[Rfam]
RNA sequence: AGAGUCCUGAGGUGUACGUGGGACACUAAUCGUUUUGAGCCAACAGUUUUACAUUGGGAGCCCGGACGUUUCAAUUGGAAUGACACGCCUCUUUAUUGUGGAAGUCUGAACAAUUGAACAGGGCACCCACCUGCCGAUGCAGGCUUCAAAACCAGGUCAGUUUGACGGCACAUCGGGACUCUU
Numbered sequence: 001a002g003a004g005u006c007c008u009g010a011g012g013u014g015u016a017c018g019u020g021g022g023a024c025a026c027u028a029a030u031c032g033u034u035u036u037g038a039g040c041c042a043a044c045a046g047u048u049u050u051a052c053a054u055u056g057g058g059a060g061c062c063c064g065g066a067c068g069u070u071u072c073a074a075u076u077g078g079a080a081u082g083a084c085a086c087g088c089c090u091c092u093u094u095a096u097u098g099u100g101g102a103a104g105u106c107u108g109a110a111c112a113a114u115u116g117a118a119c120a121g122g123g124c125a126c127c128c129a130c131c132u133g134c135c136g137a138u139g140c141a142g143g144c145u146u147c148a149a150a151a152c153c154a155g156g157u158c159a160g161u162u163u164g165a166c167g168g169c170a171c172a173u174c175g176g177g178a179c180u181c182u183u
Base pairs, nucleotide, nucleotide: 002181003180004179005178006177007176008175009174010173012171013170014169015168017167018166019165032152033151034150036148037147038146039144040143041142056128057127058126060124061123062122063121065119071117072116073115074114075113076112077111083105084104088101089100091098
6S / SsrS RNA: a 183-nucleotide RNA from Salibacterium qingdaonense. It is annotated as a non-coding RNA gene. Pairs were carried over by alignment from the consensus structure, which is taken from published work. On this family, see Trotochaud and Wassarman, Nat Struct Mol Biol 2005: "A highly conserved 6S RNA structure is required for regulation of transcription". It scores 101 bits against the family's covariance model.